[Rfam]
Annotation: A member of the RNA family "mir-87 microRNA precursor family" from Physeter macrocephalus, 76 nucleotides long. Rfam 15.1 lists 420 matches to the family in 285 species. The match comes from Rfam's covariance-model search (50 bits).
RNA sequence: CCAACAAACACAUGAAAGGAUGCUCAACUUCUCUAAUGAUUAGUGAAGUUGAGCAUCCUUUCAUGUGUUUGUUGGC
Numbered sequence: 001c002c003a004a005c006a007a008a009c010a011c012a013u014g015a016a017a018g019g020a021u022g023c024u025c026a027a028c029u030u031c032u033c034u035a036a037u038g039a040u041u042a043g044u045g046a047a048g049u050u051g052a053g054c055a056u057c058c059u060u061u062c063a064u065g066u067g068u069u070u071g072u073u074g075g076c
Stems, first nucleotide, its partner, number of pairs: 002074006009067007017059005023053004028048003